Shown here is an 81-nucleotide RNA from Eleutherodactylus coqui, a member of the family "mir-92 microRNA precursor family". Its Rfam clan is "mir-92 microRNA precursor clan". On this family, see Mourelatos et al., Genes Dev 2002: "miRNPs: a novel class of ribonucleoproteins containing numerous microRNAs". A search with the family's covariance model found it, with a score of 78 bits. Gene Ontology terms of the family: miRNA-mediated post-transcriptional gene silencing and RISC complex. The base pairs follow the family's consensus structure, which was predicted with PFOLD. Rfam describes the family as follows. This family represents the microRNA precursor mir-92. Human miR-92 has two predicted hairpin precursor sequences: mir-92-1 on chromosome 13 and mir-92-2 on chromosome X. miR-92 has also been cloned from mouse embryonic stem cells. The mature sequence is excised from the 3' arm of the hairpin.
RNA sequence: GCUCCUCCGUGGGUGGGGAUUUGUUGCAUUACUUGUGUAUGUUGUAAAAGUAUUGCACUUGUCCCGGCCUGUGGAAGAAAA
Numbered sequence: 001g002c003u004c005c006u007c008c009g010u011g012g013g014u015g016g017g018g019a020u021u022u023g024u025u026g027c028a029u030u031a032c033u034u035g036u037g038u039a040u041g042u043u044g045u046a047a048a049a050g051u052a053u054u055g056c057a058c059u060u061g062u063c064c065c066g067g068c069c070u071g072u073g074g075a076a077g078a079a080a081a
Stems, first nucleotide, its partner, number of pairs: 004077001006075001009072006016065005023058002026056003030052005
Dot-bracket structure: ...(.(..((((((.(((((..((.(((.(((((.............))))).)))))..))))).))))))..).)....